This 84-nucleotide sequence from Bacillus sp. PK3_68 belongs to the Rfam family "c-di-GMP-I-GGC riboswitch aptamer". Lineage of the source: Bacteria > Bacilli > Caryophanales > Bacillaceae > Bacillus. The literature on the family includes a 2017 paper in Proc Natl Acad Sci U S A by Weinberg et al., "Bioinformatic analysis of riboswitch structures uncovers variant classes with altered ligand specificity". The base pairs follow the family's consensus structure, which is taken from published work.

RNA sequence: AAUGAUAAAGGCAAACUUAUCGAAAGGUAAGGACGCAAAGCCGCGGGUCUAAGGUUUUUAAUUAUGAUAGCCGGGCUGCCAAAG
Numbered sequence: 001a002a003u004g005a006u007a008a009a010g011g012c013a014a015a016c017u018u019a020u021c022g023a024a025a026g027g028u029a030a031g032g033a034c035g036c037a038a039a040g041c042c043g044c045g046g047g048u049c050u051a052a053g054g055u056u057u058u059u060a061a062u063u064a065u066g067a068u069a070g071c072c073g074g075g076c077u078g079c080c081a082a083a084g
Base pairs, nucleotide, nucleotide: 003081004080011036012035016031017030018029019028020027021026034070039077040076041075042074044073045072046071047068048067049066